[Rfam]
A member of the RNA family "Glycine riboswitch aptamer" from Mycobacterium heidelbergense, 114 nucleotides long. Taxonomically the source falls in Mycobacterium simiae complex (Bacteria, Actinomycetota, Actinomycetes, Mycobacterium).
RNA sequence: CGACGCCUCUGGAAAGCGGUGCAGGCCCGCGACGGUCCACACCCGCCGAUGGGGAAAGGCGCCCCGCGCCGAAUCUCUCAGGCGCCCGGUGAACGGGUAAAGACAGAGGGAGAG
Numbered sequence: 001c002g003a004c005g006c007c008u009c010u011g012g013a014a015a016g017c018g019g020u021g022c023a024g025g026c027c028c029g030c031g032a033c034g035g036u037c038c039a040c041a042c043c044c045g046c047c048g049a050u051g052g053g054g055a056a057a058g059g060c061g062c063c064c065c066g067c068g069c070c071g072a073a074u075c076u077c078u079c080a081g082g083c084g085c086c087c088g089g090u091g092a093a094c095g096g097g098u099a100a101a102g103a104c105a106g107a108g109g110g111a112g113a114g
Base pairs, nucleotide, nucleotide: 006109007108008107009106010105011104018043019042020041021040045083046082047081048079049078052077053076054075058070059069